RNA: Molybdenum/Tungsten riboswitch aptamer (Moco RNA motif)
Organism: Enterobacter sp. 638
RNA sequence: GAUGAAAACAUACACUCUAGCCUUGACGCCUGUGUCACAUGAUAUGGCGCCCUGGCCGUGGCGGUUUCGCCACCAGGGUACAGAAAGAAAUGACUGUGCCUCCCGUAUCUGGAAAGGUGUACAUGGCUUCACAAC
Numbered sequence: 001g002a003u004g005a006a007a008a009c010a011u012a013c014a015c016u017c018u019a020g021c022c023u024u025g026a027c028g029c030c031u032g033u034g035u036c037a038c039a040u041g042a043u044a045u046g047g048c049g050c051c052c053u054g055g056c057c058g059u060g061g062c063g064g065u066u067u068c069g070c071c072a073c074c075a076g077g078g079u080a081c082a083g084a085a086a087g088a089a090a091u092g093a094c095u096g097u098g099c100c101u102c103c104c105g106u107a108u109c110u111g112g113a114a115a116g117g118u119g120u121a122c123a124u125g126g127c128u129u130c131a132c133a134a135c
Base pairs, nucleotide, nucleotide: 004128011121012120013119014118015117017116020056021055022054025051027049028048029047030046034043035042036041058073059072060071061070062069076101077100078099079098080097081096082095083094086091102112103111